[Rfam]
RNA sequence: CAGCCGGCUGUAAACGUUGCAGCUUCCACAGGAAACUGUGGUUGAAACUUCGGGUGAAUUCAGGGAAGCCGUCCCCGCCGUGCGGAACGGUAAUCCUGAGCGAAGCCUGCCGAACGGUCCAUCGACAGAUGGUGUAGGUAGGAACGUGCAGAGACUAGAGGCUGAGGAGCCGAUCCAAUAAGGCCUCGCUAGCGCCCGACACCCUCCCCUGGCAAUUCAGGCGGGUGAAGAGAUAGUCCAAGCCCAGUCGAAAGACGGGG
Numbered sequence: 001c002a003g004c005c006g007g008c009u010g011u012a013a014a015c016g017u018u019g020c021a022g023c024u025u026c027c028a029c030a031g032g033a034a035a036c037u038g039u040g041g042u043u044g045a046a047a048c049u050u051c052g053g054g055u056g057a058a059u060u061c062a063g064g065g066a067a068g069c070c071g072u073c074c075c076c077g078c079c080g081u082g083c084g085g086a087a088c089g090g091u092a093a094u095c096c097u098g099a100g101c102g103a104a105g106c107c108u109g110c111c112g113a114a115c116g117g118u119c120c121a122u123c124g125a126c127a128g129a130u131g132g133u134g135u136a137g138g139u140a141g142g143a144a145c146g147u148g149c150a151g152a153g154a155c156u157a158g159a160g161g162c163u164g165a166g167g168a169g170c171c172g173a174u175c176c177a178a179u180a181a182g183g184c185c186u187c188g189c190u191a192g193c194g195c196c197c198g199a200c201a202c203c204c205u206c207c208c209c210u211g212g213c214a215a216u217u218c219a220g221g222c223g224g225g226u227g228a229a230g231a232g233a234u235a236g237u238c239c240a241a242g243c244c245c246a247g248u249c250g251a252a253a254g255a256c257g258g259g260g
Stems, first nucleotide, its partner, number of pairs: 007023007028039003050199004055194002060099006069090004100147002106141001113135001151239001153238005202225003206221002245258001247256003
Rfam assigns this 260-nucleotide RNA sequence from Nitrospira moscoviensis to the family "Group I catalytic intron". Pairs were carried over by alignment from the consensus structure, which is taken from published work. The family has 12 seed sequences and 5,602 matches in Rfam 15.1. The match comes from Rfam's covariance-model search (81 bits). Rfam links the family to the GO term Group I intron splicing.